mir-653 microRNA precursor family: a 77-nucleotide RNA sequence from Molossus molossus. The source organism's lineage runs through Eukaryota, Chordata, Dipnotetrapodomorpha, Tetrapoda and Molossus. The literature on the family includes a 2010 paper in BMC Genomics by Linsen et al., "Small RNA expression and strain specificity in the rat". A search with the family's covariance model found it, with a score of 81 bits.
[Rfam]
RNA sequence: UCCUUCGGUGCAGAAACAAUCUCUACUGAACUGGCUCCAAACCAAGUUCACUGGAGAUUGUUUCGAUAUUGCAAGAA
Dot-bracket structure: ..((((((((..(((((((.(((((.(((((..............))))).))))).)))))))..))))).)))..